[Rfam]
RNA sequence: GUUAAUAUCUUUGAAGGGACGAUGGGUGGACAAUGAAGUUCUAAUCUUAUUUCUCAGUGAAAGUUUUUUCUGCGAUUUACUUGCGCAGUAACAAAAUAAACUUUACGAAACGGAAAUAGGAUUAGUCUGCCCAUUUUUCAAUUUUAAUACGUUUAAUUCCCUACAUAUUAUCAUUUUGUAGUGGCUUUUUGUGUAUUCAUUUAAUGGUCAGUAAUUAAUCCUUCCGUAUAAAAUCGGAGGGAUUUUUUU
Numbered sequence: 001g002u003u004a005a006u007a008u009c010u011u012u013g014a015a016g017g018g019a020c021g022a023u024g025g026g027u028g029g030a031c032a033a034u035g036a037a038g039u040u041c042u043a044a045u046c047u048u049a050u051u052u053c054u055c056a057g058u059g060a061a062a063g064u065u066u067u068u069u070c071u072g073c074g075a076u077u078u079a080c081u082u083g084c085g086c087a088g089u090a091a092c093a094a095a096a097u098a099a100a101c102u103u104u105a106c107g108a109a110a111c112g113g114a115a116a117u118a119g120g121a122u123u124a125g126u127c128u129g130c131c132c133a134u135u136u137u138u139c140a141a142u143u144u145u146a147a148u149a150c151g152u153u154u155a156a157u158u159c160c161c162u163a164c165a166u167a168u169u170a171u172c173a174u175u176u177u178g179u180a181g182u183g184g185c186u187u188u189u190u191g192u193g194u195a196u197u198c199a200u201u202u203a204a205u206g207g208u209c210a211g212u213a214a215u216u217a218a219u220c221c222u223u224c225c226g227u228a229u230a231a232a233a234u235c236g237g238a239g240g241g242a243u244u245u246u247u248u249u
Stems, first nucleotide, its partner, number of pairs: 016139004023133004029127003042124013058107002060104007150191002158184002161181004217244010
Shown here is a 249-nucleotide RNA sequence from Psychrobacillus glaciei, a member of the family "Bacillus sRNA ncr1575". The literature on the family includes a 2010 paper in Nucleic Acids Res by Irnov et al., "Identification of regulatory RNAs in Bacillus subtilis". A search with the family's covariance model found it, with a score of 97 bits.